[Rfam]
RNA sequence: AUGAUCUUACUUGCACAGGAUCUGUUUUACAGGUUUGUACAUAUGUGUCCUUGAUCAAAAAAGAAAACAGGAGCAGAAGUCUGGUAGAUGACUCGUGGCCGCAUGAUUAGAGCGUGAUUAACGGCUUUGAUCACUAGUGUGGUGCAUCGUGCUGUAGAGCAUCGUACCCAAUUGGCUUUGCCUGGUUCGGGUUGGUCAUGCAGUUGUCUGACAGACU
Numbered sequence: 001a002u003g004a005u006c007u008u009a010c011u012u013g014c015a016c017a018g019g020a021u022c023u024g025u026u027u028u029a030c031a032g033g034u035u036u037g038u039a040c041a042u043a044u045g046u047g048u049c050c051u052u053g054a055u056c057a058a059a060a061a062a063g064a065a066a067a068c069a070g071g072a073g074c075a076g077a078a079g080u081c082u083g084g085u086a087g088a089u090g091a092c093u094c095g096u097g098g099c100c101g102c103a104u105g106a107u108u109a110g111a112g113c114g115u116g117a118u119u120a121a122c123g124g125c126u127u128u129g130a131u132c133a134c135u136a137g138u139g140u141g142g143u144g145c146a147u148c149g150u151g152c153u154g155u156a157g158a159g160c161a162u163c164g165u166a167c168c169c170a171a172u173u174g175g176c177u178u179u180g181c182c183u184g185g186u187u188c189g190g191g192u193u194g195g196u197c198a199u200g201c202a203g204u205u206g207u208c209u210g211a212c213a214g215a216c217u
Stems, first nucleotide, its partner, number of pairs: 001038002003035001005033003013027001015025004044069003048064002051061002079216005098204002101201009112165003121155005127149001129147001130143005167190002170187006
About this RNA:
The record is a 217-nucleotide RNA from Turnera subulata, which matches "Plant small nucleolar RNA U3" in Rfam. NCBI's taxonomy places the organism under Eukaryota, Streptophytina, Mesangiospermae, eudicotyledons, Turnera. A search with the family's covariance model found it, with a score of 123 bits. Rfam 15.1 lists 3,759 matches to the family in 258 species. Small nucleolar RNAs (snoRNAs) are involved in the processing and modification of rRNA in the nucleolus. There are two main classes of snoRNAs: the box C/D class, and the box H/ACA class.